[Rfam]
RNA: Small nucleolar RNA snoR99
Organism: Lathyrus oleraceus
RNA sequence: UUUCUUUUGGGAAGAAGACGUCCCUUAUAUGCAAAUUAUCCAUCUGUUUCACUUUGUCAGCUCUUUUAAUAAUAUUUUGCUGAUCAUUUUAGGAUGGAACAUUA
Numbered sequence: 001u002u003u004c005u006u007u008u009g010g011g012a013a014g015a016a017g018a019c020g021u022c023c024c025u026u027a028u029a030u031g032c033a034a035a036u037u038a039u040c041c042a043u044c045u046g047u048u049u050c051a052c053u054u055u056g057u058c059a060g061c062u063c064u065u066u067u068a069a070u071a072a073u074a075u076u077u078u079g080c081u082g083a084u085c086a087u088u089u090u091a092g093g094a095u096g097g098a099a100c101a102u103u104a
Stems, first nucleotide, its partner, number of pairs: 039098006056084006